Rfam assigns this 124-nucleotide RNA from Thalassotalea mangrovi to the family "ArsR-gov region gene B".
RNA sequence: UUAUCUAAGUGUUAUUUUAUUCUGGCUUAGAACAAAGAUAUCGUAGAGUGCAAGGAAAAGAAAGACGAGCUAUAAAAAGACAUCGCCGGAAAGUAAAAAACCCGCGUAAAGCGGGUCUUUUAAA
Numbered sequence: 001u002u003a004u005c006u007a008a009g010u011g012u013u014a015u016u017u018u019a020u021u022c023u024g025g026c027u028u029a030g031a032a033c034a035a036a037g038a039u040a041u042c043g044u045a046g047a048g049u050g051c052a053a054g055g056a057a058a059a060g061a062a063a064g065a066c067g068a069g070c071u072a073u074a075a076a077a078a079g080a081c082a083u084c085g086c087c088g089g090a091a092a093g094u095a096a097a098a099a100a101c102c103c104g105c106g107u108a109a110a111g112c113g114g115g116u117c118u119u120u121u122a123a124a
Base pairs, nucleotide, nucleotide: 021090022089023088024087025086026085095121096120097119098118100116101115102114103113104112105111
arsR-gov region gene B is transcribed opposite of dinQ (translates into a toxic single transmembrane peptide) with 30 complimentary nucleotides. AgrB appears to repress accumulation of dinQ by RNA interference and counteracts its toxicity. Gene Ontology terms of the family: antisense RNA metabolic process and gene silencing by RNA. A reference for the family is Weel-Sneve et al. (2013), "Single transmembrane peptide DinQ modulates membrane-dependent activities", PLoS Genet. The base pairs follow the family's consensus structure, which was predicted with RNAfold.